[Rfam]
RNA sequence: UAUAAAUACGCUCCUUCGUGCGUGUUAUUGAAAAAGCAUAAAGAAAAACUUCUAGACAGGAUUUUCUUUAUGCUAUUUAUUAUAACC
Numbered sequence: 001u002a003u004a005a006a007u008a009c010g011c012u013c014c015u016u017c018g019u020g021c022g023u024g025u026u027a028u029u030g031a032a033a034a035a036g037c038a039u040a041a042a043g044a045a046a047a048a049c050u051u052c053u054a055g056a057c058a059g060g061a062u063u064u065u066c067u068u069u070a071u072g073c074u075a076u077u078u079a080u081u082a083u084a085a086c087c
Base pairs, nucleotide, nucleotide: 005026006025007024008023009022010021011020013018035074036073037072038071039070040069041068042067043066044065045064046063
RNA: ctRNA
Organism: Periweissella fabalis